[Rfam]
RNA sequence: CCAGGAGGCUGGGCAGCCGCGUCGGAGCGUAAGUUUCGCCGAGGAAAGUCCGGGCUCCACGAAACAAGGGUGGCGGGUAACGCCCGCCGGGUGAGGAGGUUCGCUUCCGAGCUCAGGGAAAGUGCCACAGAGAGUAUACCGCCGAUGGCCCGCGCUCCUGCUUGCAGGUUUGGGGGCACAGGCAAGGGUGAAAGGGUGCGGCAAGAGCGCACCGGGCGACCGGCAACGGAAGCCGCAUGGCAAACCCCACCCGGAGCAAGACCGCAUAGGGGUCUCGAGCCUUUUAGGCAGGGGAGUUUCGCCCCGAGAGACCCGGGUUGGUUGCUAGAGUGGCGGAGCAAUCCGUCGCCAAGAUGAAUGGCUGCCCCCACGUGGCCGGUCCCCUAGGGGAUACCGCGCGCGGGACAGAACCCGGCUUACAGGCCUCCUGGCACU
Numbered sequence: 001c002c003a004g005g006a007g008g009c010u011g012g013g014c015a016g017c018c019g020c021g022u023c024g025g026a027g028c029g030u031a032a033g034u035u036u037c038g039c040c041g042a043g044g045a046a047a048g049u050c051c052g053g054g055c056u057c058c059a060c061g062a063a064a065c066a067a068g069g070g071u072g073g074c075g076g077g078u079a080a081c082g083c084c085c086g087c088c089g090g091g092u093g094a095g096g097a098g099g100u101u102c103g104c105u106u107c108c109g110a111g112c113u114c115a116g117g118g119a120a121a122g123u124g125c126c127a128c129a130g131a132g133a134g135u136a137u138a139c140c141g142c143c144g145a146u147g148g149c150c151c152g153c154g155c156u157c158c159u160g161c162u163u164g165c166a167g168g169u170u171u172g173g174g175g176g177c178a179c180a181g182g183c184a185a186g187g188g189u190g191a192a193a194g195g196g197u198g199c200g201g202c203a204a205g206a207g208c209g210c211a212c213c214g215g216g217c218g219a220c221c222g223g224c225a226a227c228g229g230a231a232g233c234c235g236c237a238u239g240g241c242a243a244a245c246c247c248c249a250c251c252c253g254g255a256g257c258a259a260g261a262c263c264g265c266a267u268a269g270g271g272g273u274c275u276c277g278a279g280c281c282u283u284u285u286a287g288g289c290a291g292g293g294g295a296g297u298u299u300c301g302c303c304c305c306g307a308g309a310g311a312c313c314c315g316g317g318u319u320g321g322u323u324g325c326u327a328g329a330g331u332g333g334c335g336g337a338g339c340a341a342u343c344c345g346u347c348g349c350c351a352a353g354a355u356g357a358a359u360g361g362c363u364g365c366c367c368c369c370a371c372g373u374g375g376c377c378g379g380u381c382c383c384c385u386a387g388g389g390g391a392u393a394c395c396g397c398g399c400g401c402g403g404g405a406c407a408g409a410a411c412c413c414g415g416c417u418u419a420c421a422g423g424c425c426u427c428c429u430g431g432c433a434c435u
Stems, first nucleotide, its partner, number of pairs: 001431010011420001012366007020041002023038006046418003050415005055256004064299001066297001068252005073087005088116001089114004117247002122245002124241003139187002141183003146178002149175003195213006214236001215234003220229003260323004270314006291305004330349008
A member of the RNA family "Bacterial RNase P class A" from Altererythrobacter sp. Root672, 435 nucleotides long. Rfam describes the family as follows. Ribonuclease P (RNase P) is a ubiquitous endoribonuclease, found in archaea, bacteria and eukarya as well as chloroplasts and mitochondria. The organism belongs to Altererythrobacter, within Bacteria. By type it is a ribozyme.